[Rfam]
RNA sequence: GGUGAAGAUAGAGGUGCGAACUUCAAGAGUAUGCCUUUGGAGAAAGAUGGAUUCUGUGAAAAAGGCUGAAAGGGGAGCGUCGCCGAAGCAAAUAAAACCCCAUCGGUAUUAUUUGCUGGCCGUGCAUUGAAUAAAUGUAAGGCUGUCAAGAAAUCAUUUUCUUGGAGGGCUAUCUCGUUG
Numbered sequence: 001g002g003u004g005a006a007g008a009u010a011g012a013g014g015u016g017c018g019a020a021c022u023u024c025a026a027g028a029g030u031a032u033g034c035c036u037u038u039g040g041a042g043a044a045a046g047a048u049g050g051a052u053u054c055u056g057u058g059a060a061a062a063a064g065g066c067u068g069a070a071a072g073g074g075g076a077g078c079g080u081c082g083c084c085g086a087a088g089c090a091a092a093u094a095a096a097a098c099c100c101c102a103u104c105g106g107u108a109u110u111a112u113u114u115g116c117u118g119g120c121c122g123u124g125c126a127u128u129g130a131a132u133a134a135a136u137g138u139a140a141g142g143c144u145g146u147c148a149a150g151a152a153a154u155c156a157u158u159u160u161c162u163u164g165g166a167g168g169g170c171u172a173u174c175u176c177g178u179u180g
Base pairs, nucleotide, nucleotide: 006175007174008173009172010171011170016083017082018081019080021077022076023075024074033066034065035064036063037062038061087117088116089115090114091113092112093111094110095109097107098106118144119143120142121141123139124138125137126136127135128134146165147164148163149162150161151160152159